[Rfam]
RNA sequence: GUCGGUCCUCGGUAGUGGCUCCCGUCUCCCGGCACUCGGCCGCGGAGCGAGGGCCUCGAUCGAAGACGGGC
Numbered sequence: 001g002u003c004g005g006u007c008c009u010c011g012g013u014a015g016u017g018g019c020u021c022c023c024g025u026c027u028c029c030c031g032g033c034a035c036u037c038g039g040c041c042g043c044g045g046a047g048c049g050a051g052g053g054c055c056u057c058g059a060u061c062g063a064a065g066a067c068g069g070g071c
Stems, first nucleotide, its partner, number of pairs: 001071003005067003009063005017055005023049003027045002